[Rfam]
RNA sequence: AGCCAUGCGUGGAUCACAAAGCAAACUAUUCUUUCGCCUUUUACUAAAGAAUACCUUGUGCUUGUCGCUUUAAAUGGCAUACGCUUAUUUUUGGAGAGGCGCAACUCUGUUGGUGCCC
Numbered sequence: 001a002g003c004c005a006u007g008c009g010u011g012g013a014u015c016a017c018a019a020a021g022c023a024a025a026c027u028a029u030u031c032u033u034u035c036g037c038c039u040u041u042u043a044c045u046a047a048a049g050a051a052u053a054c055c056u057u058g059u060g061c062u063u064g065u066c067g068c069u070u071u072a073a074a075u076g077g078c079a080u081a082c083g084c085u086u087a088u089u090u091u092u093g094g095a096g097a098g099g100c101g102c103a104a105c106u107c108u109g110u111u112g113g114u115g116c117c118c
Stems, first nucleotide, its partner, number of pairs: 003077004008067002012063002015060004027053008098117005

U5 spliceosomal RNA: a 118-nucleotide RNA from Malus baccata. A reference for the family is Zwieb (1997), "The uRNA database", Nucleic Acids Res. The family's consensus secondary structure is taken from published work. U5 RNA is a component of both types of known spliceosome. The precise function of this molecule is unknown, though it is known that the 5' loop is required for splice site selection and p220 binding, and that both the 3' stem-loop and the Sm site are important for Sm protein binding and cap methylation. The organism belongs to Malus, within Eukaryota.